[Rfam]
RNA sequence: ACUAGAUAAAGGCAAACUUGCUGAAAAGUAAGGACGCAAAGCCAUGGGUCUAAAGUCAUGCUGACUAAGAUUGCCAGGUUGCCAAU
Dot-bracket structure: ...........((...((((((....))))))...))..((((.((((((....((((...))))...)))..)))))))......